[Rfam]
Nucleotides: 193
Stems, first nucleotide, its partner, number of pairs: 013179008023169007036156001059133002062130003068124004076116001
Number, partner (000 for none) and nucleotide at each position: 001000a002000g003000u004000g005000g006000u007000u008000u009000a010000a011000g012000a013179g014178a015177g016176c017175u018174u019173c020172c021000u022000u023169c024168a025167g026166u027165c028164c029163a030000c031000u032000c033000a034000u035000g036156g037000a038000u039000g040000g041000g042000u043000u044000a045000g046000g047000g048000g049000u050000u051000u052000g053000g054000a055000u056000u057000a058000g059133c060132u061000g062130c063129c064128g065000a066000c067000u068124c069123a070122u071121u072000c073000a074000u075000u076116c077000a078000a079000a080000c081000a082000c083000a084000g085000u086000a087000g088000a089000a090000u091000g092000g093000a094000a095000a096000u097000g098000g099000a100000g101000u102000u103000u104000a105000c106000u107000a108000c109000u110000g111000u112000g113000a114000a115000u116076g117000u118000g119000u120000g121071a122070a123069u124068g125000a126000u127000g128064c129063g130062g131000g132060a133059g134000g135000u136000a137000a138000a139000u140000u141000u142000c143000a144000u145000c146000c147000u148000u149000u150000u151000c152000u153000u154000g155000u156036c157000u158000g159000u160000g161000c162000u163029u164028g165027g166026a167025c168024u169023g170000a171000a172020g173019g174018g175017a176016g177015c178014u179013c180000c181000c182000u183000u184000c185000u186000a187000c188000u189000g190000u191000u192000u193000u
Source information
MIR159 microRNA precursor family: a 193-nucleotide sequence from Vitis vinifera. Its family is annotated with miRNA-mediated post-transcriptional gene silencing and RISC complex in the Gene Ontology. NCBI's taxonomy places the organism under Eukaryota, Embryophyta, Tracheophyta, Mesangiospermae, Vitis. On this family, see Jones-Rhoades and Bartel, Mol Cell 2004: "Computational identification of plant microRNAs and their targets, including a stress-induced miRNA". Rfam's curators put it in the seed alignment.